Guanidine-II riboswitch aptamer (mini-ykkC): a 47-nucleotide sequence from Amantichitinum ursilacus. Rfam 15.1 lists 1,589 matches to the family in 1,229 species. Pairs were carried over by alignment from the consensus structure, which is taken from published work. A search with the family's covariance model found it, with a score of 34 bits.
RNA sequence: CAUGCGGGACGGCCCGCUGGGUGUUGCAAUCGUGCGGGACGACCCGC
Numbered sequence: 001c002a003u004g005c006g007g008g009a010c011g012g013c014c015c016g017c018u019g020g021g022u023g024u025u026g027c028a029a030u031c032g033u034g035c036g037g038g039a040c041g042a043c044c045c046g047c
Base pairs, nucleotide, nucleotide: 001020004017005016006015007014008013034047035046036045037044038043